[Rfam]
RNA: SAM riboswitch aptamer (S box leader)
Organism: Halalkalibacter oceani
RNA sequence: CUCUUAUCCUGAGUUGGCGGAGGGACAGGCCCGAAGAAGCCCAGCAACCAAUACUCAAAGCCAUGAGUGUUAAAGGUGCUAACCUGCAAGGCUAUUUGCCUUGAACGAUAAGAG
Numbered sequence: 001c002u003c004u005u006a007u008c009c010u011g012a013g014u015u016g017g018c019g020g021a022g023g024g025a026c027a028g029g030c031c032c033g034a035a036g037a038a039g040c041c042c043a044g045c046a047a048c049c050a051a052u053a054c055u056c057a058a059a060g061c062c063a064u065g066a067g068u069g070u071u072a073a074a075g076g077u078g079c080u081a082a083c084c085u086g087c088a089a090g091g092c093u094a095u096u097u098g099c100c101u102u103g104a105a106c107g108a109u110a111a112g113a114g
Stems, first nucleotide, its partner, number of pairs: 001114008013042001016041003022032003026086004043080004048076002051071001087103006